[Rfam]
RNA sequence: CGGGGAAAGAAGACCCUGUUGAGCUUGACUCUAGUUUGACAUUGUGAAAAGACAUAGGGGGUGUAGCAUAGGUAGGAGCUUCGGCGCUAGUAAAAUACCACUACCCUUAUCGUUUUUUUACUUAUUUAAUAAAGCGGGGCUAGGCUUUACCGUCUAUCUUCUAGCAUUAAGGUCCUUCGCGGGCCGACCCGGGUUGAAGACAUUGUCAGGUGGGGAGUUUGGCUGGGGCGGCACAUCUGUUAAACCAUAACGCAGGUGUCCUAAGGGGGACUCAUGGAGAACAGAAAUCUCCAGUAGAGCAAAAGGGCAAAAGUCCCCUUGAUUUUGAUUUUUAGUGUGAAUAUAAACUAUGAAAGUAUAGCCUAUCGAUCCUUUAGUCCCUCGAAAUUUAAGGCUAGAGAUGCUAGAAAAGUUACUAUAGGGAUAACUAGCUUAUGGUAGCUAAGCGUUUAUAGCGACGUUGCUUUUUAAUCCUUUAAUGUCGGCUCUUCCUAUUAUACCGAAGUAGAAUUCGGUAAGCGUUAGAUUAUUUACCCACUAAUAGGGAACGUAAGCUGGGUUUAGACCGUCGUGAGAUAGGUUAGUUUUACCCUA
Numbered sequence: 001c002g003g004g005g006a007a008a009g010a011a012g013a014c015c016c017u018g019u020u021g022a023g024c025u026u027g028a029c030u031c032u033a034g035u036u037u038g039a040c041a042u043u044g045u046g047a048a049a050a051g052a053c054a055u056a057g058g059g060g061g062u063g064u065a066g067c068a069u070a071g072g073u074a075g076g077a078g079c080u081u082c083g084g085c086g087c088u089a090g091u092a093a094a095a096u097a098c099c100a101c102u103a104c105c106c107u108u109a110u111c112g113u114u115u116u117u118u119u120a121c122u123u124a125u126u127u128a129a130u131a132a133a134g135c136g137g138g139g140c141u142a143g144g145c146u147u148u149a150c151c152g153u154c155u156a157u158c159u160u161c162u163a164g165c166a167u168u169a170a171g172g173u174c175c176u177u178c179g180c181g182g183g184c185c186g187a188c189c190c191g192g193g194u195u196g197a198a199g200a201c202a203u204u205g206u207c208a209g210g211u212g213g214g215g216a217g218u219u220u221g222g223c224u225g226g227g228g229c230g231g232c233a234c235a236u237c238u239g240u241u242a243a244a245c246c247a248u249a250a251c252g253c254a255g256g257u258g259u260c261c262u263a264a265g266g267g268g269g270a271c272u273c274a275u276g277g278a279g280a281a282c283a284g285a286a287a288u289c290u291c292c293a294g295u296a297g298a299g300c301a302a303a304a305g306g307g308c309a310a311a312a313g314u315c316c317c318c319u320u321g322a323u324u325u326u327g328a329u330u331u332u333u334a335g336u337g338u339g340a341a342u343a344u345a346a347a348c349u350a351u352g353a354a355a356g357u358a359u360a361g362c363c364u365a366u367c368g369a370u371c372c373u374u375u376a377g378u379c380c381c382u383c384g385a386a387a388u389u390u391a392a393g394g395c396u397a398g399a400g401a402u403g404c405u406a407g408a409a410a411a412g413u414u415a416c417u418a419u420a421g422g423g424a425u426a427a428c429u430a431g432c433u434u435a436u437g438g439u440a441g442c443u444a445a446g447c448g449u450u451u452a453u454a455g456c457g458a459c460g461u462u463g464c465u466u467u468u469u470a471a472u473c474c475u476u477u478a479a480u481g482u483c484g485g486c487u488c489u490u491c492c493u494a495u496u497a498u499a500c501c502g503a504a505g506u507a508g509a510a511u512u513c514g515g516u517a518a519g520c521g522u523u524a525g526a527u528u529a530u531u532u533a534c535c536c537a538c539u540a541a542u543a544g545g546g547a548a549c550g551u552a553a554g555c556u557g558g559g560u561u562u563a564g565a566c567c568g569u570c571g572u573g574a575g576a577u578a579g580g581u582u583a584g585u586u587u588u589a590c591c592c593u594a
Stems, first nucleotide, its partner, number of pairs: 003593003007588002015422004020418002022414005028218004035210007044121010054110007071102003075098001078085002125198005135191004143154003171185005221234001222232003235257006260361001266318006272298002275293006299308002323347003328342004349358003372400006380394003431472001433470001435469001437465006446456002483558001484556004488550001489547005496521001499516006523537001525535001527533001564582004568577003